RNA sequence: GAAGCGCGCCAGACCGCCGCUGGUGCAAGUGCCGAAAGGCCGCACUGGAGGAACGUCCGGACUGCACAGGACGGCGUAGCAGCUAACGGCUGUCCACCGCGAGGUGAGGAUCAGAGCAACAGAGACGAGUCCGGAAGGAGUGCCGCAAGGCAGACCAGCCGGGGUGAAACGGGCAAUCUCUACGCGCAGCAAUACCAAGUAGGCCAGCGUUGACGUGGUUCCGCGGAGCUGGCGGGUAGGUAGCAUCGAGCCGGGCGGGCGACCCCCGGCCCAGAGUAAUGGCGGUCACAUGCGGGCAACUGCAUGCACAGAAUCCGGCUUAUCGGCGCGCUUCACAC
Numbered sequence: 001g002a003a004g005c006g007c008g009c010c011a012g013a014c015c016g017c018c019g020c021u022g023g024u025g026c027a028a029g030u031g032c033c034g035a036a037a038g039g040c041c042g043c044a045c046u047g048g049a050g051g052a053a054c055g056u057c058c059g060g061a062c063u064g065c066a067c068a069g070g071a072c073g074g075c076g077u078a079g080c081a082g083c084u085a086a087c088g089g090c091u092g093u094c095c096a097c098c099g100c101g102a103g104g105u106g107a108g109g110a111u112c113a114g115a116g117c118a119a120c121a122g123a124g125a126c127g128a129g130u131c132c133g134g135a136a137g138g139a140g141u142g143c144c145g146c147a148a149g150g151c152a153g154a155c156c157a158g159c160c161g162g163g164g165u166g167a168a169a170c171g172g173g174c175a176a177u178c179u180c181u182a183c184g185c186g187c188a189g190c191a192a193u194a195c196c197a198a199g200u201a202g203g204c205c206a207g208c209g210u211u212g213a214c215g216u217g218g219u220u221c222c223g224c225g226g227a228g229c230u231g232g233c234g235g236g237u238a239g240g241u242a243g244c245a246u247c248g249a250g251c252c253g254g255g256c257g258g259g260c261g262a263c264c265c266c267c268g269g270c271c272c273a274g275a276g277u278a279a280u281g282g283c284g285g286u287c288a289c290a291u292g293c294g295g296g297c298a299a300c301u302g303c304a305u306g307c308a309c310a311g312a313a314u315c316c317g318g319c320u321u322a323u324c325g326g327c328g329c330g331c332u333u334c335a336c337a338c
Stems, first nucleotide, its partner, number of pairs: 001334010011323001012287007020048007053321001055319001057318005062189004069220001071219001074185005079093005094108001095106004109180002114178002116174002131163002193242004203233006214225004250270006257264002
RNA: Bacterial RNase P class A
Organism: Paracidovorax avenae